Background:
Shown here is a 329-nucleotide sequence from Rhizoctonia solani, a member of the family "Group I catalytic intron". Lineage of the source: Eukaryota > Dikarya > Basidiomycota > Rhizoctonia solani > Rhizoctonia solani AG-1. It scores 113 bits against the family's covariance model. The family's consensus secondary structure is taken from published work.
RNA sequence: CAUUUUUGCUACUUGGUGGUUAAGAGGCAUCCGAAAGGUUUAGCCUAGUGGGAGUUGAGGCUUGCAACACUGUCAAAUUGCGGGGACGUCCUAAAGCUUUUGCGACCAAGCACUGGUGGAAACAUUAGUGUGGCCGAGUUAAUAGCCCUGGGUAUGGUAAAACUGCAAAAGAUGUUACAAUGGAUAAUCCGCAGCCAAGUCCUAAGGUCUCCUUAAUUGGAGUCUAUGGAUGCAGUUCACAGACUAAAUGGCAGUGGGUGUGUAUUGAGUUGGGAGUAACCUGGCUCUACAUGCUUAAGAUAUAGUCGGUCCUGCCGUGAAAACGGACU
Numbered sequence: 001c002a003u004u005u006u007u008g009c010u011a012c013u014u015g016g017u018g019g020u021u022a023a024g025a026g027g028c029a030u031c032c033g034a035a036a037g038g039u040u041u042a043g044c045c046u047a048g049u050g051g052g053a054g055u056u057g058a059g060g061c062u063u064g065c066a067a068c069a070c071u072g073u074c075a076a077a078u079u080g081c082g083g084g085g086a087c088g089u090c091c092u093a094a095a096g097c098u099u100u101u102g103c104g105a106c107c108a109a110g111c112a113c114u115g116g117u118g119g120a121a122a123c124a125u126u127a128g129u130g131u132g133g134c135c136g137a138g139u140u141a142a143u144a145g146c147c148c149u150g151g152g153u154a155u156g157g158u159a160a161a162a163c164u165g166c167a168a169a170a171g172a173u174g175u176u177a178c179a180a181u182g183g184a185u186a187a188u189c190c191g192c193a194g195c196c197a198a199g200u201c202c203u204a205a206g207g208u209c210u211c212c213u214u215a216a217u218u219g220g221a222g223u224c225u226a227u228g229g230a231u232g233c234a235g236u237u238c239a240c241a242g243a244c245u246a247a248a249u250g251g252c253a254g255u256g257g258g259u260g261u262g263u264a265u266u267g268a269g270u271u272g273g274g275a276g277u278a279a280c281c282u283g284g285c286u287c288u289a290c291a292u293g294c295u296u297a298a299g300a301u302a303u304a305g306u307c308g309g310u311c312c313u314g315c316c317g318u319g320a321a322a323a324c325g326g327a328c329u
Stems, first nucleotide, its partner, number of pairs: 001024001003022001031038002068256005074250002079193006089184003194236002199231004207224001209222003240308001242307005258294007315326004